Small nucleolar RNA SNORD75: a 70-nucleotide RNA from Clupea harengus. It scores 62 bits against the family's covariance model. A reference for the family is Galardi et al. (2002), "Purified box C/D snoRNPs are able to reproduce site-specific 2'-O-methylation of target RNA in vitro", Mol Cell Biol. Its family is annotated with RNA processing and nucleolus in the Gene Ontology.

RNA sequence: GGCCUAUGAUGAGUACAUGUAUAAGAGUAGUGGACAGAAGUGAUUUCUGAGCACGUUUUAAUCUGAGGUU
Numbered sequence: 001g002g003c004c005u006a007u008g009a010u011g012a013g014u015a016c017a018u019g020u021a022u023a024a025g026a027g028u029a030g031u032g033g034a035c036a037g038a039a040g041u042g043a044u045u046u047c048u049g050a051g052c053a054c055g056u057u058u059u060a061a062u063c064u065g066a067g068g069u070u
Stems, first nucleotide, its partner, number of pairs: 001070004
Dot-bracket structure: ((((..............................................................))))
The family's consensus secondary structure was predicted with RNAalifold.